[Rfam]
RNA sequence: GAGAGGAAGAACCAAUAUGACGAAGUCAUAUUUCAAGAUGGUUCUGACGACCUGCCGCCUGGCGUAAGCGAGGGGGCGUUACCUAUU
Numbered sequence: 001g002a003g004a005g006g007a008a009g010a011a012c013c014a015a016u017a018u019g020a021c022g023a024a025g026u027c028a029u030a031u032u033u034c035a036a037g038a039u040g041g042u043u044c045u046g047a048c049g050a051c052c053u054g055c056c057g058c059c060u061g062g063c064g065u066a067a068g069c070g071a072g073g074g075g076g077c078g079u080u081a082c083c084u085a086u087u
Stems, first nucleotide, its partner, number of pairs: 008045006015031006054077003058073002062069002

The record is an 87-nucleotide RNA from Clostridium sp. CAG:167, which matches "GA-cis RNA" in Rfam. The base pairs follow the family's consensus structure, which is taken from published work.